A member of the RNA family "Small nucleolar RNA SNORA31" from Denticeps clupeoides, 128 nucleotides long. It scores 60 bits against the family's covariance model. The literature on the family includes a 2001 paper in EMBO J by Huttenhofer et al., "RNomics: an experimental approach that identifies 201 candidates for novel, small, non-messenger RNAs in mouse". From the family's description: ACA31 (SNORA31) belongs to the H/ACA class of snoRNAs which are thought to guide the sites of modification of uridines to pseudouridines. ACA31 is predicted to guide the pseudouridylation of U3713 in 28S rRNA and U218 in 18S rRNA. This family includes the mouse homologue snoMBI-161. The family has 5 seed sequences and 2,094 matches in Rfam 15.1. Rfam classes the family as an H/ACA-box small nucleolar RNA.
[Rfam]
RNA sequence: UGGCAUCUACUGAUAGACCUACAGCCUGUCUUUUGUGGUCUCUGGGUUUGCACAUAGAUGCAACAUCAAAAUCUCUUGUUCUUCCCACUUGUCUUGCGGCAGCGUGGGUAGAAUACAGGGAAACAGGC
Numbered sequence: 001u002g003g004c005a006u007c008u009a010c011u012g013a014u015a016g017a018c019c020u021a022c023a024g025c026c027u028g029u030c031u032u033u034u035g036u037g038g039u040c041u042c043u044g045g046g047u048u049u050g051c052a053c054a055u056a057g058a059u060g061c062a063a064c065a066u067c068a069a070a071a072u073c074u075c076u077u078g079u080u081c082u083u084c085c086c087a088c089u090u091g092u093c094u095u096g097c098g099g100c101a102g103c104g105u106g107g108g109u110a111g112a113a114u115a116c117a118g119g120g121a122a123a124c125a126g127g128c
Stems, first nucleotide, its partner, number of pairs: 003061006011052002014050006023041002026038004074120006081111001084108004089102005